[Rfam]
RNA sequence: ACAUCUUGCCCUGUCUGGCGCCCUGUCUGUGCAAACGGUUGGUGGCGGGCCCGCCCGAAAGCGCAAGAGAGA
Numbered sequence: 001a002c003a004u005c006u007u008g009c010c011c012u013g014u015c016u017g018g019c020g021c022c023c024u025g026u027c028u029g030u031g032c033a034a035a036c037g038g039u040u041g042g043u044g045g046c047g048g049g050c051c052c053g054c055c056c057g058a059a060a061g062c063g064c065a066a067g068a069g070a071g072a
Stems, first nucleotide, its partner, number of pairs: 004068006017055003023048005
Trypanosomatid snoRNA TB11Cs4H1: a 72-nucleotide sequence from Trypanosoma cruzi. The family's RNA type in Rfam is H/ACA-box small nucleolar RNA. The family has 5 seed sequences and 162 matches in Rfam 15.1.